A member of the RNA family "Nuclear RNase P" from Aegotheles bennettii, 322 nucleotides long. It is annotated as a ribozyme. Lineage of the source: Eukaryota > Deuterostomia > Euteleostomi > Aegothelidae > Aegotheles. Rfam describes the family as follows. Ribonuclease P (RNase P) is a ubiquitous endoribonuclease, found in archaea, bacteria and eukarya as well as chloroplasts and mitochondria. Its best characterised activity is the generation of mature 5'-ends of tRNAs by cleaving the 5'-leader elements of precursor-tRNAs. Cellular RNase Ps are ribonucleoproteins. RNA from bacterial RNase Ps retains its catalytic activity in the absence of the protein subunit, i.e. it is a ribozyme. Rfam links the family to the GO terms tRNA processing, ribonuclease P complex and ribonuclease P activity.
RNA sequence: UCCGGGGGAAGCUCACCGCCGAGGCCACCCACGGGGUGCCCGUCACCCGCCGCCCCGCCUCGGGGAAGGUCUGAGGGAAGGGCCGCGCGCGGCUCCAGCAGGGCCCCGCCCGCGAGGGGCGGGUGAGCCACCAGCAAGGGGGGGCGCCGCGCUCGGGCCGGCCUGGGCAGGAGAAGCCGCGGCGGGAGGUUCGAGACCUCCCCCCGGCGGAUGCUCGUGGCCCCGCGGUGCUUUGAGACAGACUCACGGCCGGCGAUCGCUGAGUCCAAUGGGUGAGGUGGGGCACGGCCCUACAACCCAAUUCAGACUACUCUCCCCCGGA
Numbered sequence: 001u002c003c004g005g006g007g008g009a010a011g012c013u014c015a016c017c018g019c020c021g022a023g024g025c026c027a028c029c030c031a032c033g034g035g036g037u038g039c040c041c042g043u044c045a046c047c048c049g050c051c052g053c054c055c056c057g058c059c060u061c062g063g064g065g066a067a068g069g070u071c072u073g074a075g076g077g078a079a080g081g082g083c084c085g086c087g088c089g090c091g092g093c094u095c096c097a098g099c100a101g102g103g104c105c106c107c108g109c110c111c112g113c114g115a116g117g118g119g120c121g122g123g124u125g126a127g128c129c130a131c132c133a134g135c136a137a138g139g140g141g142g143g144g145c146g147c148c149g150c151g152c153u154c155g156g157g158c159c160g161g162c163c164u165g166g167g168c169a170g171g172a173g174a175a176g177c178c179g180c181g182g183c184g185g186g187a188g189g190u191u192c193g194a195g196a197c198c199u200c201c202c203c204c205c206g207g208c209g210g211a212u213g214c215u216c217g218u219g220g221c222c223c224c225g226c227g228g229u230g231c232u233u234u235g236a237g238a239c240a241g242a243c244u245c246a247c248g249g250c251c252g253g254c255g256a257u258c259g260c261u262g263a264g265u266c267c268a269a270u271g272g273g274u275g276a277g278g279u280g281g282g283g284c285a286c287g288g289c290c291c292u293a294c295a296a297c298c299c300a301a302u303u304c305a306g307a308c309u310a311c312u313c314u315c316c317c318c319c320g321g322a
Stems, first nucleotide, its partner, number of pairs: 001322004007316003012277006020062005034048005071306005081251004091105005106122006123247005129241001143232009278294007